[Rfam]
Rfam assigns this 73-nucleotide RNA sequence from Gopherus evgoodei to the family "mir-875 microRNA precursor family". Its family is annotated with RISC complex and miRNA-mediated post-transcriptional gene silencing in the Gene Ontology. A reference for the family is Berezikov et al. (2006), "Many novel mammalian microRNA candidates identified by extensive cloning and RAKE analysis", Genome Res.
RNA sequence: UACUGGUACAAUAUCUCAGUCUUAUCAGGUGUUCUAUAAAUUCACCUGGAAAAACUGAGAUUGAGUUUCACUG
Numbered sequence: 001u002a003c004u005g006g007u008a009c010a011a012u013a014u015c016u017c018a019g020u021c022u023u024a025u026c027a028g029g030u031g032u033u034c035u036a037u038a039a040a041u042u043c044a045c046c047u048g049g050a051a052a053a054a055c056u057g058a059g060a061u062u063g064a065g066u067u068u069c070a071c072u073g
Base pairs, nucleotide, nucleotide: 004070005069006068008066009065013061014060015059016058017057018056019055020054022052023051025049026048027047028046029045030044031043